Rfam assigns this 71-nucleotide RNA from Penicillium angulare to the family "tRNA". The organism belongs to Penicillium, within Eukaryota. Gene Ontology term of the family: triplet codon-amino acid adaptor activity. It is annotated as a transfer RNA. The base pairs follow the family's consensus structure, which is taken from published work.
RNA sequence: AGCGUGUUAAUUUAAUGGUAGAAUAGCGUGCUACGGACACGUAAAUAUAAGUUCAAAUCUUAUACACGCUU
Numbered sequence: 001a002g003c004g005u006g007u008u009a010a011u012u013u014a015a016u017g018g019u020a021g022a023a024u025a026g027c028g029u030g031c032u033a034c035g036g037a038c039a040c041g042u043a044a045a046u047a048u049a050a051g052u053u054c055a056a057a058u059c060u061u062a063u064a065c066a067c068g069c070u071u
Stems, first nucleotide, its partner, number of pairs: 001070007010024004026042005047063005